[Rfam]
RNA sequence: UUAAUCACGUUUCCUUAUCACUUUUCAAGUCCAAUAUGAUGAUAUGAUGAUAUGAUUGGACGGAGAACUGAUAAGGGCAUAUGAUUAU
Numbered sequence: 001u002u003a004a005u006c007a008c009g010u011u012u013c014c015u016u017a018u019c020a021c022u023u024u025u026c027a028a029g030u031c032c033a034a035u036a037u038g039a040u041g042a043u044a045u046g047a048u049g050a051u052a053u054g055a056u057u058g059g060a061c062g063g064a065g066a067a068c069u070g071a072u073a074a075g076g077g078c079a080u081a082u083g084a085u086u087a088u
Base pairs, nucleotide, nucleotide: 012077013076014075015074016073017072018071019070020069022067023066024065025064026063030059031058

The family of this 88-nucleotide RNA from Helobdella robusta is "mir-184 microRNA precursor family".
A reference for the family is Chen et al. (2005), "The developmental miRNA profiles of zebrafish as determined by small RNA cloning", Genes Dev.
NCBI's taxonomy places the organism under Eukaryota, Opisthokonta, Spiralia, Clitellata, Helobdella.